The record is a 56-nucleotide sequence from Sphingomonas jeddahensis, which matches "sul1 RNA" in Rfam. Rfam classes the family as a riboswitch.

[Rfam]
RNA sequence: CAAGGACCCGGUGCAACCCCGGGUGGCUAUCCCGGCCGCCGAUCCGCCGGGCAACU
Numbered sequence: 001c002a003a004g005g006a007c008c009c010g011g012u013g014c015a016a017c018c019c020c021g022g023g024u025g026g027c028u029a030u031c032c033c034g035g036c037c038g039c040c041g042a043u044c045c046g047c048c049g050g051g052c053a054a055c056u
Stems, first nucleotide, its partner, number of pairs: 006024006031051006
Background
The organism belongs to Sphingomonas, within Bacteria. It scores 78 bits against the family's covariance model.